Shown here is a 125-nucleotide RNA from Nannospalax galili, a member of the family "Small nucleolar RNA SNORA33". The match comes from Rfam's covariance-model search (101 bits). ACA33 is a member of the H/ACA class of snoRNA that guide the sites of modification of uridines to pseudouridines. NCBI's taxonomy places the organism under Eukaryota, Eumetazoa, Mammalia, Theria, Nannospalax. The family has 28 seed sequences and 1,176 matches in Rfam 15.1. The family's RNA type in Rfam is H/ACA-box small nucleolar RNA.
RNA sequence: AUGAUAAUGAUCUGCUUAUCUGAAUGUGUAUCUGCAGAGAGCUAGAAAAGCUGGCAAUAGUAAGGCCAUGUUAGGAGCCUUAAAGACACCUAUAGUCAUUGAGGUCCAUGAGAAUGGCUAUAAUA
Dot-bracket structure: (.........(((((..................))))).............)............((((........(((((((.(((.......))).))))))).........)))).......
Numbered sequence: 001a002u003g004a005u006a007a008u009g010a011u012c013u014g015c016u017u018a019u020c021u022g023a024a025u026g027u028g029u030a031u032c033u034g035c036a037g038a039g040a041g042c043u044a045g046a047a048a049a050g051c052u053g054g055c056a057a058u059a060g061u062a063a064g065g066c067c068a069u070g071u072u073a074g075g076a077g078c079c080u081u082a083a084a085g086a087c088a089c090c091u092a093u094a095g096u097c098a099u100u101g102a103g104g105u106c107c108a109u110g111a112g113a114a115u116g117g118c119u120a121u122a123a124u125a
Stems, first nucleotide, its partner, number of pairs: 001052001011038005065118004077105007085097003